[Rfam]
RNA sequence: GGAAUAGGUAUUCUCCAGUAAUUACAUUGAAAUUGAAGGAUUGUUAUUGCUUGAGAAUACAAAUUGU
Numbered sequence: 001g002g003a004a005u006a007g008g009u010a011u012u013c014u015c016c017a018g019u020a021a022u023u024a025c026a027u028u029g030a031a032a033u034u035g036a037a038g039g040a041u042u043g044u045u046a047u048u049g050c051u052u053g054a055g056a057a058u059a060c061a062a063a064u065u066g067u
Base pairs, nucleotide, nucleotide: 008060009059010058011057012056013055017051018050019049020048021047022046024044025043026042
Background: Rfam assigns this 67-nucleotide sequence from Onchocerca volvulus to the family "mir-234 microRNA precursor family". A search with the family's covariance model found it, with a score of 60 bits. A reference for the family is Ambros et al. (2003), "MicroRNAs and other tiny endogenous RNAs in C. elegans", Curr Biol. The source organism's lineage runs through Eukaryota, Opisthokonta, Eumetazoa, Nematoda and Onchocerca.